The family of this 84-nucleotide RNA from Drosophila persimilis is "mir-263 microRNA precursor family". The family's consensus secondary structure was predicted with RNAalifold.
RNA sequence: UGGCAUUGGCUCUUGGCACUGGGAGAAUUCACAGUUGGUUUUCAUAUAUUCUGUGGUUCUGCGGGUGCCCAAAAUCGAAUGUUC
Numbered sequence: 001u002g003g004c005a006u007u008g009g010c011u012c013u014u015g016g017c018a019c020u021g022g023g024a025g026a027a028u029u030c031a032c033a034g035u036u037g038g039u040u041u042u043c044a045u046a047u048a049u050u051c052u053g054u055g056g057u058u059c060u061g062c063g064g065g066u067g068c069c070c071a072a073a074a075u076c077g078a079a080u081g082u083u084c
Base pairs, nucleotide, nucleotide: 003082004081005080006079007078009076013072014071015069016068017067018066020064022062023060025059026058027057029056030055031054032053033052034051
The organism belongs to Sophophora, within Eukaryota. The family has 52 seed sequences and 368 matches in Rfam 15.1.